RNA sequence: GCACGUGCUCCGGGGUCGGUGAAAUUCCGAGCCGGCGGUGAAAGCCCGCGACCCGCGUCGAAAAGCCUGUGCUGGCUGUUGUUUUCCUCGCGGUUGAUCUGGUGAAAUUCCAGGGCCGACGGUGAAAGUCCGGAUGGGAGGCAGCACGUGG
Numbered sequence: 001g002c003a004c005g006u007g008c009u010c011c012g013g014g015g016u017c018g019g020u021g022a023a024a025u026u027c028c029g030a031g032c033c034g035g036c037g038g039u040g041a042a043a044g045c046c047c048g049c050g051a052c053c054c055g056c057g058u059c060g061a062a063a064a065g066c067c068u069g070u071g072c073u074g075g076c077u078g079u080u081g082u083u084u085u086c087c088u089c090g091c092g093g094u095u096g097a098u099c100u101g102g103u104g105a106a107a108u109u110c111c112a113g114g115g116c117c118g119a120c121g122g123u124g125a126a127a128g129u130c131c132g133g134a135u136g137g138g139a140g141g142c143a144g145c146a147c148g149u150g151g
Stems, first nucleotide, its partner, number of pairs: 003149007010140001017029003031129002033118002035049004044116002053093005098114005120132003
Rfam assigns this 151-nucleotide RNA sequence to the family "FMN riboswitch aptamer (RFN element)".